[Rfam]
RNA sequence: UCGGGCGCCCGAUGGGGCUCGAUGCGGACGCCGACUGCGUCUGGCGUCCUGCUUGUAACCAUGUUGCUUUGAUGAGGAUGUGGCUAUGAGAA
Dot-bracket structure: ((((((.((.....))))))))..(((((((((........)))))))).)((((((.(((((((.(((....)))))))))).))))))..
Annotation: Repression of heat shock gene expression (ROSE) element: a 92-nucleotide RNA sequence from Labrys okinawensis. Gene Ontology terms of the family: regulation of translation and response to temperature stimulus. From the family's description: This family represents a 5' UTR cis-regulatory element found in heat shock mRNAs and is known as the ROSE (repression of heat shock gene expression) element. The ROSE element is a negative regulator of heat shock gene expression. By type it is an RNA thermoregulator.